[Rfam]
RNA sequence: CCCGCUGUUUCGUCAGCGGUAACCUACCGACACAUGCAUCACUGGUAACGGUGUUGUGUGAAGCUGUCGGGACAACGAACCCUUCCUGAAAAGGAGGAGCUGAAGCCGUGAGGUGGAGCAACGAUCCCCAGUAUCACGGGGUCUGGGUGC
Numbered sequence: 001c002c003c004g005c006u007g008u009u010u011c012g013u014c015a016g017c018g019g020u021a022a023c024c025u026a027c028c029g030a031c032a033c034a035u036g037c038a039u040c041a042c043u044g045g046u047a048a049c050g051g052u053g054u055u056g057u058g059u060g061a062a063g064c065u066g067u068c069g070g071g072a073c074a075a076c077g078a079a080c081c082c083u084u085c086c087u088g089a090a091a092a093g094g095a096g097g098a099g100c101u102g103a104a105g106c107c108g109u110g111a112g113g114u115g116g117a118g119c120a121a122c123g124a125u126c127c128c129c130a131g132u133a134u135c136a137c138g139g140g141g142u143c144u145g146g147g148u149g150c
Stems, first nucleotide, its partner, number of pairs: 002019006028069005033060006040053005082097006099119003106113002126141004